[Rfam]
RNA sequence: GAUGCGGGACGGGCCCCUCUGGCGUUCGUUUCCGGUUCUGUUUCCGAGCGGCUUUCCCCCCAGCCGUGGCGAGACGCCGGAGGCGACGCGAUGUCGGACCGCAACG
Numbered sequence: 001g002a003u004g005c006g007g008g009a010c011g012g013g014c015c016c017c018u019c020u021g022g023c024g025u026u027c028g029u030u031u032c033c034g035g036u037u038c039u040g041u042u043u044c045c046g047a048g049c050g051g052c053u054u055u056c057c058c059c060c061c062a063g064c065c066g067u068g069g070c071g072a073g074a075c076g077c078c079g080g081a082g083g084c085g086a087c088g089c090g091a092u093g094u095c096g097g098a099c100c101g102c103a104a105c106g
Stems, first nucleotide, its partner, number of pairs: 006100002010096003022089005028084009

Notes: A member of the RNA family "terC RNA" from Brevundimonas variabilis, 106 nucleotides long. The family's RNA type in Rfam is cis-regulatory element. It scores 44 bits against the family's covariance model.